[Rfam]
RNA: Small nucleolar RNA SNORA81
Organism: Ursus maritimus
RNA sequence: ACCUUCCUUUGUGUAAGCACUGUGCUAAAACUGCAGAAACUAGGGUCACAUCGUGGGUUUUGUAAUGGUGCUGGCACAAUACAUACGAGAAGAAAAGGAACUGCACUAGAGUAUAGAGACUGGGGUGAGCCUCUCUCUUAGUGUCCCGUGUCCUUUGUCUUAAGGUGUGAUGCACUAUGU
Numbered sequence: 001a002c003c004u005u006c007c008u009u010u011g012u013g014u015a016a017g018c019a020c021u022g023u024g025c026u027a028a029a030a031c032u033g034c035a036g037a038a039a040c041u042a043g044g045g046u047c048a049c050a051u052c053g054u055g056g057g058u059u060u061u062g063u064a065a066u067g068g069u070g071c072u073g074g075c076a077c078a079a080u081a082c083a084u085a086c087g088a089g090a091a092g093a094a095a096a097g098g099a100a101c102u103g104c105a106c107u108a109g110a111g112u113a114u115a116g117a118g119a120c121u122g123g124g125g126u127g128a129g130c131c132u133c134u135c136u137c138u139u140a141g142u143g144u145c146c147c148g149u150g151u152c153c154u155u156u157g158u159c160u161u162a163a164g165g166u167g168u169g170a171u172g173c174a175c176u177a178u179g180u
Base pairs, nucleotide, nucleotide: 021078023076024075025074026073027072030069031068032067033066036060037059040056041055042054044052045051046050102174103173104172105171107169108168110166122151124149127146129144